Source information:
A member of the RNA family "Small nucleolar RNA SNORA74" from Gulo gulo, 204 nucleotides long. A reference for the family is Ganot et al. (1997), "The family of box ACA small nucleolar RNAs is defined by an evolutionarily conserved secondary structure and ubiquitous sequence elements essential for RNA accumulation", Genes Dev. It scores 126 bits against the family's covariance model. Pairs were carried over by alignment from the consensus structure, which was predicted with PFOLD. By type it is an H/ACA-box small nucleolar RNA. The family is grouped with related families in Rfam's "SNORA74 clan".
RNA sequence: UCCAGCAGUAGUCAGCUGUCCGGAUAGACCCAUUCCUGUGAUGGUGUUACACUGCUGGGAGAGGAAUGUCCUGUCUUCUUCCUCCGGUUGCCUCUGUCACUGUUCUGGUGACAGCUGGCACUGGUGCAAGGCAGAACUGUGCUUCCUUGAGAGUGUGCUGAGCGUUCACUCUGGCCGCUUCGCUCUAGCCUGGGAGCAGACACA
Numbered sequence: 001u002c003c004a005g006c007a008g009u010a011g012u013c014a015g016c017u018g019u020c021c022g023g024a025u026a027g028a029c030c031c032a033u034u035c036c037u038g039u040g041a042u043g044g045u046g047u048u049a050c051a052c053u054g055c056u057g058g059g060a061g062a063g064g065a066a067u068g069u070c071c072u073g074u075c076u077u078c079u080u081c082c083u084c085c086g087g088u089u090g091c092c093u094c095u096g097u098c099a100c101u102g103u104u105c106u107g108g109u110g111a112c113a114g115c116u117g118g119c120a121c122u123g124g125u126g127c128a129a130g131g132c133a134g135a136a137c138u139g140u141g142c143u144u145c146c147u148u149g150a151g152a153g154u155g156u157g158c159u160g161a162g163c164g165u166u167c168a169c170u171c172u173g174g175c176c177g178c179u180u181c182g183c184u185c186u187a188g189c190c191u192g193g194g195a196g197c198a199g200a201c202a203c204a
Stems, first nucleotide, its partner, number of pairs: 001059009011050002015045006021038001022036003068137002071134006082126001084124002089118001095113007140198007155185001157183001160180005